[Rfam]
RNA: Plastid-ccsA-ndhD-2 3UTR RNA
Organism: Salix dunnii
RNA sequence: UCGUUGAGAACCUUUUGAAUCACUCAAAUAAUGGAGUGAUUCAAAAGGUUCUCACAA
Numbered sequence: 001u002c003g004u005u006g007a008g009a010a011c012c013u014u015u016u017g018a019a020u021c022a023c024u025c026a027a028a029u030a031a032u033g034g035a036g037u038g039a040u041u042c043a044a045a046a047g048g049u050u051c052u053c054a055c056a057a
Stems, first nucleotide, its partner, number of pairs: 005054020